[Rfam]
A member of the RNA family "Ribosomal protein L10 leader" from Amedibacterium intestinale, 127 nucleotides long. The family's RNA type in Rfam is cis-regulatory leader. The family's consensus secondary structure was predicted with CMfinder. This family is a putative r-protein leader autoregulatory structure found in B. subtilis and other low-GC Gram-positive bacteria. It is located in the 5' untranslated regions of mRNAs encoding ribosomal proteins L10 and L12 (rplJ-rplL). NCBI's taxonomy places the organism under Bacteria, Bacillota, Erysipelotrichia, Erysipelotrichaceae, Amedibacterium.
RNA sequence: UUCGAUGUUAUCAAUAUACCAUAGACAGUAACGGCUAUUGCUUAAUCAUGUUACCGAGGUAGAAAGUAAGAACAUAUAUUCUUUCGCCCGCAGACUGUCUUGGUAUGCGGGUGUUUUAUAUAUCACU
Dot-bracket structure: ...........................((((((((....)).......))))))...............................(((((((.((.......)).)))))))...............